[Rfam]
RNA sequence: UUACUUGAGAAUUUGAUCUUGGUUCAGAUUGAAUGCUGACGGCGUGGAUGAGGCAUGCAAGUCGAACGAAACGGGCAACCGUUUAGUGGCGGAAGGGUUAGUAAUACAUGGGUAACUUGCCUUUAACUUUGGAAUAACGAUUGGAAACGAUCGCUAAUACCAAAUGUGGUGGAGCAACACAAGUUGAUUUCAUCAAAGUGGGGGAUCGCAAGACCUCGCGGUUAAAGAGAGGCCCAUGGGAUAUCAGCUAGUUGGUGUGGUAACGGCACACCAAGGCUAAGACGUCUAGGCGGAUUGAGAGAUUGACCGCCAACACUGGGACUGAGAACUGCCCAGACUCCUACGGGAGGCUGCAGUCGAGAAUCAUUCGCAAUGGGCGAAAGCCUGACGAUGCGACGCCGUGUGAGCGAUGAAGGCCUUAGGGUCGUAAAGCUCUUUCGCCUGGGAGCAAGAGAGGCUGGCUAAUAUCCAGCAGAUUUGAGAGUACCAGGUAAAGAAGCACCGGCUAACUCCGUGCCAGCAGCUGCGGUAAUACGGAGGGUGCAAGCAUUAAUCGGAUUUAUUG
Numbered sequence: 001u002u003a004c005u006u007g008a009g010a011a012u013u014u015g016a017u018c019u020u021g022g023u024u025c026a027g028a029u030u031g032a033a034u035g036c037u038g039a040c041g042g043c044g045u046g047g048a049u050g051a052g053g054c055a056u057g058c059a060a061g062u063c064g065a066a067c068g069a070a071a072c073g074g075g076c077a078a079c080c081g082u083u084u085a086g087u088g089g090c091g092g093a094a095g096g097g098u099u100a101g102u103a104a105u106a107c108a109u110g111g112g113u114a115a116c117u118u119g120c121c122u123u124u125a126a127c128u129u130u131g132g133a134a135u136a137a138c139g140a141u142u143g144g145a146a147a148c149g150a151u152c153g154c155u156a157a158u159a160c161c162a163a164a165u166g167u168g169g170u171g172g173a174g175c176a177a178c179a180c181a182a183g184u185u186g187a188u189u190u191c192a193u194c195a196a197a198g199u200g201g202g203g204g205a206u207c208g209c210a211a212g213a214c215c216u217c218g219c220g221g222u223u224a225a226a227g228a229g230a231g232g233c234c235c236a237u238g239g240g241a242u243a244u245c246a247g248c249u250a251g252u253u254g255g256u257g258u259g260g261u262a263a264c265g266g267c268a269c270a271c272c273a274a275g276g277c278u279a280a281g282a283c284g285u286c287u288a289g290g291c292g293g294a295u296u297g298a299g300a301g302a303u304u305g306a307c308c309g310c311c312a313a314c315a316c317u318g319g320g321a322c323u324g325a326g327a328a329c330u331g332c333c334c335a336g337a338c339u340c341c342u343a344c345g346g347g348a349g350g351c352u353g354c355a356g357u358c359g360a361g362a363a364u365c366a367u368u369c370g371c372a373a374u375g376g377g378c379g380a381a382a383g384c385c386u387g388a389c390g391a392u393g394c395g396a397c398g399c400c401g402u403g404u405g406a407g408c409g410a411u412g413a414a415g416g417c418c419u420u421a422g423g424g425u426c427g428u429a430a431a432g433c434u435c436u437u438u439c440g441c442c443u444g445g446g447a448g449c450a451a452g453a454g455a456g457g458c459u460g461g462c463u464a465a466u467a468u469c470c471a472g473c474a475g476a477u478u479u480g481a482g483a484g485u486a487c488c489a490g491g492u493a494a495a496g497a498a499g500c501a502c503c504g505g506c507u508a509a510c511u512c513c514g515u516g517c518c519a520g521c522a523g524c525u526g527c528g529g530u531a532a533u534a535c536g537g538a539g540g541g542u543g544c545a546a547g548c549a550u551u552a553a554u555c556g557g558a559u560u561u562a563u564u565g
Stems, first nucleotide, its partner, number of pairs: 009025005027555004032551006039402006045395002052358003056355003061090003066087002071082004097314003107238007116231002121227007129163004138153006169193006175186004198219006240286003247277003252274008289311004293304004316336005338349004366392001368391003374387005405435004415426004439496001440492006449482001499544005510539005520527002
RNA: Bacterial small subunit ribosomal RNA, nucleotides 1 to 565
Organism: Parachlamydia sp. AcF125